The family of this 161-nucleotide RNA sequence from Rhododendron simsii is "U1 spliceosomal RNA". Lineage of the source: Eukaryota > Tracheophyta > Magnoliopsida > Ericales > Rhododendron. About the family: U1 is a small nuclear RNA (snRNA) component of the spliceosome (involved in pre-mRNA splicing). The family has 100 seed sequences and 40,184 matches in Rfam 15.1.
RNA sequence: AUACUUACCUGGACGGGGUCAAUGGGUGAUCAAAUGGCCCAUGGCCUAGGUUGACGACUUCCAUUGCACUUAGGAGGGGCGUCCACCUAAGGUCUACCCAAGUUGGUGGAACCUACGUCAUAAUUUGUGUCAGUGAGGGCCUGCGUUCGCGCGGCCCCUAU
Dot-bracket structure: ...........((((((((((.(((((.........)))))))))))(((.(.(((.(((((..........)).))).)))..)))).((((((.((......)).))).))).))))................((((..((((....))))..))))..